[Rfam]
RNA sequence: UAAAAGGGCGUCGUAGCAUAUGCUCCAUGAACGUAUCGUUCGUGCGGUAUCGCCAUCUAGAGAUAUCGGACGCGUAAUUUUUGCAUCAGGUAGUUGAGGCUUCGCUAUAGCUUUGACUACCUU
Numbered sequence: 001u002a003a004a005a006g007g008g009c010g011u012c013g014u015a016g017c018a019u020a021u022g023c024u025c026c027a028u029g030a031a032c033g034u035a036u037c038g039u040u041c042g043u044g045c046g047g048u049a050u051c052g053c054c055a056u057c058u059a060g061a062g063a064u065a066u067c068g069g070a071c072g073c074g075u076a077a078u079u080u081u082u083g084c085a086u087c088a089g090g091u092a093g094u095u096g097a098g099g100c101u102u103c104g105c106u107a108u109a110g111c112u113u114u115g116a117c118u119a120c121c122u123u
Stems, first nucleotide, its partner, number of pairs: 008073005013025001026044007045068007089121013
The family of this 123-nucleotide RNA from Bifiguratus adelaidae is "U11 spliceosomal RNA". The match comes from Rfam's covariance-model search (69 bits). NCBI's taxonomy places the organism under Eukaryota, Opisthokonta, Mucoromycota, Endogonales, Bifiguratus. It is annotated as a spliceosomal small nuclear RNA. The family's consensus secondary structure is taken from published work.